RNA sequence: CCUGCUGAAGCUCAGAGGGCUCUGAUUCAGAAAGAUCAUCGGAUCCGUCUGAGCUUGGCU
Dot-bracket structure: ...(((.(((((((((.((.((((((((.....))..)))))).)).)))))))))))).
Numbered sequence: 001c002c003u004g005c006u007g008a009a010g011c012u013c014a015g016a017g018g019g020c021u022c023u024g025a026u027u028c029a030g031a032a033a034g035a036u037c038a039u040c041g042g043a044u045c046c047g048u049c050u051g052a053g054c055u056u057g058g059c060u
Stems, first nucleotide, its partner, number of pairs: 004059003008056009018046002021043006027035002

A member of the RNA family "mir-127 microRNA precursor family" from Canis lupus, 60 nucleotides long. Its family is annotated with RISC complex and miRNA-mediated post-transcriptional gene silencing in the Gene Ontology. The sequence is in the family's curated seed alignment.